[Rfam]
RNA sequence: CAGUAUACAAAUCAAAACCCACAUAUAUGCUGAAGAAUUGGCUUCAGCGUCUCUACCAGGUCACCGUAAAUGACCGGACUAUGGGGGAAGCGACUUUAGGU
Numbered sequence: 001c002a003g004u005a006u007a008c009a010a011a012u013c014a015a016a017a018c019c020c021a022c023a024u025a026u027a028u029g030c031u032g033a034a035g036a037a038u039u040g041g042c043u044u045c046a047g048c049g050u051c052u053c054u055a056c057c058a059g060g061u062c063a064c065c066g067u068a069a070a071u072g073a074c075c076g077g078a079c080u081a082u083g084g085g086g087g088a089a090g091c092g093a094c095u096u097u098a099g100g101u
Stems, first nucleotide, its partner, number of pairs: 018087003022083004029048007057077001059075005
Dot-bracket structure: .................(((.((((...(((((((......)))))))........(.(((((.......))))).)..)))).)))..............
A member of the RNA family "Purine riboswitch aptamer" from Paenisporosarcina cavernae, 101 nucleotides long. The organism belongs to Paenisporosarcina, within Bacteria. Riboswitches are metabolite binding domains within certain messenger RNAs that serve as precision sensors for their corresponding targets. The match comes from Rfam's covariance-model search (80 bits). Rfam links the family to the GO term purine nucleobase biosynthetic process.